[Rfam]
RNA sequence: UUGUCAUUGAAGCCGAAUUCUGUGCCAACAGAUACGGGGGAUGCAACUUUAUGUGGGGUGAAGCAACUGCGUCCGGUUGCCGGGAAAACUCCGAAUCCCGAACCCGUCAGCUAACCUCGGAGGCAAAAAAGAGGAGGAAC
Number, nucleotide and partner (000 for none) at each position: 001u000002u000003g000004u000005c000006a000007u000008u000009g000010a000011a000012g124013c123014c122015g000016a000017a000018u000019u032020c031021u030022g029023u028024g000025c000026c000027a000028a023029c022030a021031g020032a019033u000034a000035c119036g118037g117038g116039g115040g000041a000042u000043g000044c055045a054046a000047c000048u000049u000050u000051a000052u000053g000054u045055g044056g105057g104058g103059u000060g000061a000062a000063g000064c079065a078066a077067c076068u000069g000070c000071g000072u000073c000074c000075g000076g067077u066078u065079g064080c000081c000082g099083g098084g097085a096086a000087a000088a000089c000090u000091c000092c000093g000094a000095a000096u085097c084098c083099c082100g000101a000102a000103c058104c057105c056106g000107u000108c000109a000110g000111c000112u000113a000114a000115c039116c038117u037118c036119g035120g000121a000122g014123g013124c012125a000126a000127a000128a000129a000130a000131g000132a000133g000134g000135a000136g000137g000138a000139a000140c000
Notes:
A member of the RNA family "c-di-AMP riboswitch aptamer (ydaO/yuaA leader)" from Paenactinomyces guangxiensis, 140 nucleotides long. The match comes from Rfam's covariance-model search (87 bits). NCBI's taxonomy places the organism under Bacteria, Bacilli, Caryophanales, Thermoactinomycetaceae, Paenactinomyces.